Source information
A member of the RNA family "Small nucleolar RNA Z118/Z121/Z120" from Oryza brachyantha, 105 nucleotides long. Its family is annotated with nucleolus and RNA processing in the Gene Ontology.
RNA sequence: UGCUUGCUGUGAGGAUUCUUGUAAGGACGAUAUCUGAGUAAGGAACCACUUAAAAAGUGCUCCUCACAUGAUUAUAUCCAAUACUGAUCAGAGACUGAGCAAAUG
Numbered sequence: 001u002g003c004u005u006g007c008u009g010u011g012a013g014g015a016u017u018c019u020u021g022u023a024a025g026g027a028c029g030a031u032a033u034c035u036g037a038g039u040a041a042g043g044a045a046c047c048a049c050u051u052a053a054a055a056a057g058u059g060c061u062c063c064u065c066a067c068a069u070g071a072u073u074a075u076a077u078c079c080a081a082u083a084c085u086g087a088u089c090a091g092a093g094a095c096u097g098a099g100c101a102a103a104u105g
Stems, first nucleotide, its partner, number of pairs: 001105002004102004038067002041064003
About this RNA: Pairs were carried over by alignment from the consensus structure, which was predicted with PFOLD. It is annotated as a C/D-box small nucleolar RNA.